The family of this 146-nucleotide RNA from Methylocaldum marinum is "TPP riboswitch aptamer (THI element)". Rfam links the family to the GO term thiamine pyrophosphate binding.
RNA sequence: CCGUAAGGCUGGGGGUGCCCUGCUGCGGUUCUCGGCGCGGUCGAUUUUUCGCGAAACGGCUCAUUCAACGCCUCCUGCAGGGCUGAGAAACACCCUUCGAACCUGAUCCGGUUAACACCGGCGUAGGAAAGCCUGUCCUGAGCCCG
Numbered sequence: 001c002c003g004u005a006a007g008g009c010u011g012g013g014g015g016u017g018c019c020c021u022g023c024u025g026c027g028g029u030u031c032u033c034g035g036c037g038c039g040g041u042c043g044a045u046u047u048u049u050c051g052c053g054a055a056a057c058g059g060c061u062c063a064u065u066c067a068a069c070g071c072c073u074c075c076u077g078c079a080g081g082g083c084u085g086a087g088a089a090a091c092a093c094c095c096u097u098c099g100a101a102c103c104u105g106a107u108c109c110g111g112u113u114a115a116c117a118c119c120g121g122c123g124u125a126g127g128a129a130a131g132c133c134u135g136u137c138c139u140g141a142g143c144c145c146g
Stems, first nucleotide, its partner, number of pairs: 006134005011096004016090001017083007102127004108121004
About the family: Vitamin B(1) in its active form thiamin pyrophosphate (TPP) is an essential coenzyme that is synthesised by coupling of pyrimidine and thiazole moieties in bacteria. Lineage of the source: Bacteria > Pseudomonadati > Methylococcales > Methylococcaceae > Methylocaldum. A search with the family's covariance model found it, with a score of 66 bits.